A member of the RNA family "t44 RNA" from Pseudomonas putida, 100 nucleotides long. Pairs were carried over by alignment from the consensus structure, which was predicted with LocARNA. By type it is a small RNA. Rfam describes the family as follows. This family consists of a number of bacterial RNA genes of between 135 and 170 bases in length. The t44 gene has been identified in several species of enteric bacteria but homologs have also been identified in Pseudomonas and Coxiella species. The t44 gene is found between the map and rpsB genes in all species in the full alignment apart from Shigella flexneri. The function of this RNA is unknown. The source organism's lineage runs through Bacteria, Pseudomonadati, Pseudomonadales, Pseudomonas and Pseudomonas putida.
[Rfam]
RNA sequence: CCCGUCAGCACUUAAACCCACACACGUGUCGACACGAUGACCUGGGUGCCCCGAGUUGCGAAAUUCGCGGGUUGGUCAUUGGGAUACGUGGAGGCCCAAC
Numbered sequence: 001c002c003c004g005u006c007a008g009c010a011c012u013u014a015a016a017c018c019c020a021c022a023c024a025c026g027u028g029u030c031g032a033c034a035c036g037a038u039g040a041c042c043u044g045g046g047u048g049c050c051c052c053g054a055g056u057u058g059c060g061a062a063a064u065u066c067g068c069g070g071g072u073u074g075g076u077c078a079u080u081g082g083g084a085u086a087c088g089u090g091g092a093g094g095c096c097c098a099a100c
Stems, first nucleotide, its partner, number of pairs: 023090008035081008048072004
Dot-bracket structure: ......................((((((((....((((((((.....((((.................)))).)))))))).))))))))..........